The family of this 122-nucleotide sequence from Nitratireductor mangrovi is "Alphaproteobacterial ar14". The base pairs follow the family's consensus structure. The family has 118 seed sequences and 784 matches in Rfam 15.1. Rfam links the family to the GO term biological process involved in symbiotic interaction. It is annotated as a small RNA. The literature on the family includes a 2012 paper in RNA Biol by del Val et al., "A survey of sRNA families in alpha-proteobacteria".

[Rfam]
RNA sequence: AGGAUUUCGCCAGGGCCUACCUCCUCCCAGGCCCUGACGGAUAAGGUCGGCAUCCACCUCCUCCCGGAUGCCGACCACCCUAAAGACACCCGCCGGACCUCCUCCCCCGGCGGGUGUUUUCU
Numbered sequence: 001a002g003g004a005u006u007u008c009g010c011c012a013g014g015g016c017c018u019a020c021c022u023c024c025u026c027c028c029a030g031g032c033c034c035u036g037a038c039g040g041a042u043a044a045g046g047u048c049g050g051c052a053u054c055c056a057c058c059u060c061c062u063c064c065c066g067g068a069u070g071c072c073g074a075c076c077a078c079c080c081u082a083a084a085g086a087c088a089c090c091c092g093c094c095g096g097a098c099c100u101c102c103u104c105c106c107c108c109g110g111c112g113g114g115u116g117u118u119u120u121c122u
Stems, first nucleotide, its partner, number of pairs: 007040003011036007045076010086117011